[Rfam]
RNA: U4atac minor spliceosomal RNA
RNA sequence: ACCGUCCUUAUCUGGGGGAGGCGCGGCGGCCCGAUGAGCGCGUGGCGAGGGCGGCCCUGCUAACGCCUGACACAGCACUGUCAGCGCCCGCCUCGCGCGCGGCGCAAUUUUUGGAACC
Numbered sequence: 001a002c003c004g005u006c007c008u009u010a011u012c013u014g015g016g017g018g019a020g021g022c023g024c025g026g027c028g029g030c031c032c033g034a035u036g037a038g039c040g041c042g043u044g045g046c047g048a049g050g051g052c053g054g055c056c057c058u059g060c061u062a063a064c065g066c067c068u069g070a071c072a073c074a075g076c077a078c079u080g081u082c083a084g085c086g087c088c089c090g091c092c093u094c095g096c097g098c099g100c101g102g103c104g105c106a107a108u109u110u111u112u113g114g115a116a117c118c
Stems, first nucleotide, its partner, number of pairs: 005019005021060003026055002029052004038046002084105005089099003
Dot-bracket structure: ....(((((.....))))).(((..((.((((.....((.....))..)))).))..))).......................((((((((.....))).))))).............